[Rfam]
RNA: int-alpA RNA
RNA sequence: AGGGCGGCUAGGGUUGACGUCCCCGAAAGCCCGCCGCCACACGGGUUGCCGCCCUUUUCUUUGUUGUGG
Numbered sequence: 001a002g003g004g005c006g007g008c009u010a011g012g013g014u015u016g017a018c019g020u021c022c023c024c025g026a027a028a029g030c031c032c033g034c035c036g037c038c039a040c041a042c043g044g045g046u047u048g049c050c051g052c053c054c055u056u057u058u059c060u061u062u063g064u065u066g067u068g069g
Stems, first nucleotide, its partner, number of pairs: 001055008011024003030045004037068001041064001